[Rfam]
Rfam assigns this 111-nucleotide RNA from Agromyces seonyuensis to the family "TPP riboswitch aptamer (THI element)". Vitamin B(1) in its active form thiamin pyrophosphate (TPP) is an essential coenzyme that is synthesised by coupling of pyrimidine and thiazole moieties in bacteria. Gene Ontology term of the family: thiamine pyrophosphate binding. The match comes from Rfam's covariance-model search (64 bits).

RNA sequence: ACGGUUGAACACGGGAGUCCGGUAUGCCGGGCUGAGAGGAAGGUUCUCCAACCUUCGACCGUCGAACCUGAUCCGGAUCAUGCCGGCGCAGGAAGUUGACUGAUUCUCUUC
Numbered sequence: 001a002c003g004g005u006u007g008a009a010c011a012c013g014g015g016a017g018u019c020c021g022g023u024a025u026g027c028c029g030g031g032c033u034g035a036g037a038g039g040a041a042g043g044u045u046c047u048c049c050a051a052c053c054u055u056c057g058a059c060c061g062u063c064g065a066a067c068c069u070g071a072u073c074c075g076g077a078u079c080a081u082g083c084c085g086g087c088g089c090a091g092g093a094a095g096u097u098g099a100c101u102g103a104u105u106c107u108c109u110u111c
Stems, first nucleotide, its partner, number of pairs: 006099001008097003011062004017032005039056007067092004073086004